The family of this 57-nucleotide sequence is "Glutamine-II riboswitch aptamer". Rfam's curators put it in the seed alignment. Gene Ontology term of the family: glutamine binding.
RNA sequence: GUCCGUUCAUCCUUUAAUUAGGACGCAUGAAUUCACAGCAUGGAACGGGGCUGUGAU
Numbered sequence: 001g002u003c004c005g006u007u008c009a010u011c012c013u014u015u016a017a018u019u020a021g022g023a024c025g026c027a028u029g030a031a032u033u034c035a036c037a038g039c040a041u042g043g044a045a046c047g048g049g050g051c052u053g054u055g056a057u
Stems, first nucleotide, its partner, number of pairs: 004047005010023004033056007